[Rfam]
RNA sequence: CCUUUGGAGUAUCAAGACCACACGAGUAGGUUUAAUCCAAAAGUGGAUACGCUGAAUAAGGAA
Numbered sequence: 001c002c003u004u005u006g007g008a009g010u011a012u013c014a015a016g017a018c019c020a021c022a023c024g025a026g027u028a029g030g031u032u033u034a035a036u037c038c039a040a041a042a043g044u045g046g047a048u049a050c051g052c053u054g055a056a057u058a059a060g061g062a063a
Base pairs, nucleotide, nucleotide: 001061002060003059004058009050010049011048012047013046021045022044023043029038030037
RAGATH-18 RNA: a 63-nucleotide RNA sequence. It is annotated as a small RNA. Pairs were carried over by alignment from the consensus structure, which is taken from published work. From the family's description: Actinobacteria, Firmicutes, Fusobacteria, Thermotogae (1 example).